Annotation: eL15-Euryarchaeota ribosomal protein leader: a 47-nucleotide RNA. The base pairs follow the family's consensus structure, which is taken from published work. A reference for the family is Eckert and Weinberg (2020), "Discovery of 20 novel ribosomal leader candidates in bacteria and archaea", BMC Microbiol.
[Rfam]
RNA sequence: UGGGACCAAUUAUGAUCCCAUGGAUGUGGCGAAAGCUGAACAAAAGA
Numbered sequence: 001u002g003g004g005a006c007c008a009a010u011u012a013u014g015a016u017c018c019c020a021u022g023g024a025u026g027u028g029g030c031g032a033a034a035g036c037u038g039a040a041c042a043a044a045a046g047a
Stems, first nucleotide, its partner, number of pairs: 001020005021043001023041001028037003